[Rfam]
RNA sequence: CUCUUAUCCUGAGAUGGUGGAGGGAACAGGCCCUAUGAAACCCAGCAACCUACUGACAAGCGGAAACGAUUGUUUCCCAGGAAGAAAGGUGCUAACCUGUUGCAAGGCCAAGCCUUGGGCGAUAAGAG
Numbered sequence: 001c002u003c004u005u006a007u008c009c010u011g012a013g014a015u016g017g018u019g020g021a022g023g024g025a026a027c028a029g030g031c032c033c034u035a036u037g038a039a040a041c042c043c044a045g046c047a048a049c050c051u052a053c054u055g056a057c058a059a060g061c062g063g064a065a066a067c068g069a070u071u072g073u074u075u076c077c078c079a080g081g082a083a084g085a086a087a088g089g090u091g092c093u094a095a096c097c098u099g100u101u102g103c104a105a106g107g108c109c110a111a112g113c114c115u116u117g118g119g120c121g122a123u124a125a126g127a128g
Base pairs, nucleotide, nucleotide: 001128002127003126004125005124006123007122008121013043016042017041018040022033023032024031027102028101029100030098044093045092046091047090049089050088051085053084054083103117104116105115106114107113108112

SAM riboswitch aptamer (S box leader): a 128-nucleotide RNA sequence from Lederbergia citrea.